[Rfam]
A member of the RNA family "Small nucleolar RNA SNORD14" from Oryza sativa, 114 nucleotides long.
Rfam describes the family as follows. U14 small nucleolar RNA (U14 snoRNA) is required for early cleavages of eukaryotic precursor rRNAs. In yeasts, this molecule possess a stem-loop region (known as the Y-domain) which is essential for function.
On this family, see Samarsky et al., Nucleic Acids Res 1996: "An essential domain in Saccharomyces cerevisiae U14 snoRNA is absent in vertebrates, but conserved in other yeasts".
The family's consensus secondary structure was predicted with PFOLD.
The match comes from Rfam's covariance-model search (78 bits).
Gene Ontology terms of the family: RNA processing and nucleolus.

RNA sequence: UGGCAAUGAUGAUAAAUUUAAGGCUUGUUUCUCAUAACAUUCGCAGUUGCCGCCUAAGAGCUCUCGCCCUGCCAGGCUUGAGAGCUAAUGCUGUUGAUUCCUUCCUUUGAGCCA
Numbered sequence: 001u002g003g004c005a006a007u008g009a010u011g012a013u014a015a016a017u018u019u020a021a022g023g024c025u026u027g028u029u030u031c032u033c034a035u036a037a038c039a040u041u042c043g044c045a046g047u048u049g050c051c052g053c054c055u056a057a058g059a060g061c062u063c064u065c066g067c068c069c070u071g072c073c074a075g076g077c078u079u080g081a082g083a084g085c086u087a088a089u090g091c092u093g094u095u096g097a098u099u100c101c102u103u104c105c106u107u108u109g110a111g112c113c114a
Base pairs, nucleotide, nucleotide: 001114002113003112004111060085061084062083063082064081065080